[Rfam]
RNA sequence: GGUCGAUGAUGAAGAAAUCAAGGCUUGUUUCUCAAUACAUUCGCAGUGGCCGCCUAAGAACUUUCGCUCUUCGCCGGGCUUGAGAGUUUCUGCUGUUUCAUUCUUCCUUGGAUGUCUGAGACC
Numbered sequence: 001g002g003u004c005g006a007u008g009a010u011g012a013a014g015a016a017a018u019c020a021a022g023g024c025u026u027g028u029u030u031c032u033c034a035a036u037a038c039a040u041u042c043g044c045a046g047u048g049g050c051c052g053c054c055u056a057a058g059a060a061c062u063u064u065c066g067c068u069c070u071u072c073g074c075c076g077g078g079c080u081u082g083a084g085a086g087u088u089u090c091u092g093c094u095g096u097u098u099c100a101u102u103c104u105u106c107c108u109u110g111g112a113u114g115u116c117u118g119a120g121a122c123c
Stems, first nucleotide, its partner, number of pairs: 001123004060087006
This 123-nucleotide RNA sequence belongs to the Rfam family "Small nucleolar RNA SNORD14". Its family is annotated with RNA processing and nucleolus in the Gene Ontology. The match comes from Rfam's covariance-model search (79 bits). On this family, see Samarsky et al., Nucleic Acids Res 1996: "An essential domain in Saccharomyces cerevisiae U14 snoRNA is absent in vertebrates, but conserved in other yeasts". Rfam 15.1 lists 4,559 matches to the family in 936 species.